[Rfam]
RNA sequence: AGAACAACAACCGCCCCUCUCCAUAAUCCGGGGCAACUCAAACAGGAGGUUCCGCACAUCGGCGGUGCGACAAUGUGGAGACGUGUCGUAAAGUCUGAGGGUUCGACCCCCUCAAGGCAAGGUAAAUGAGCAGAGGCGAAUUUAUCACGAUGGGUAGAUAUGGCA
Number, nucleotide and partner (000 for none) at each position: 001a000002g000003a000004a000005c000006a000007a000008c000009a000010a000011c000012c000013g034014c033015c032016c031017c030018u000019c000020u000021c000022c000023a000024u000025a000026a000027u000028c000029c000030g017031g016032g015033g014034c013035a000036a000037c000038u000039c000040a000041a000042a000043c000044a000045g000046g000047a000048g000049g000050u000051u000052c065053c064054g063055c062056a000057c152058a151059u150060c149061g148062g055063c054064g053065g052066u090067g089068c088069g087070a086071c085072a084073a000074u000075g082076u081077g000078g000079a000080g000081a076082c075083g000084u072085g071086u070087c069088g068089u067090a066091a000092a000093g118094u117095c116096u115097g000098a000099g112100g111101g110102u000103u000104c000105g000106a000107c000108c000109c000110c101111c100112u099113c000114a000115a096116g095117g094118c093119a000120a000121g146122g145123u144124a143125a142126a141127u140128g000129a000130g137131c136132a000133g000134a000135g000136g131137c130138g000139a000140a127141u126142u125143u124144a123145u122146c121147a000148c061149g060150a059151u058152g057153g000154g000155u000156a000157g000158a000159u000160a000161u000162g000163g000164c000165a000
Description:
malK-I RNA: a 165-nucleotide RNA sequence from Mageeibacillus indolicus. The base pairs follow the family's consensus structure, which is taken from published work.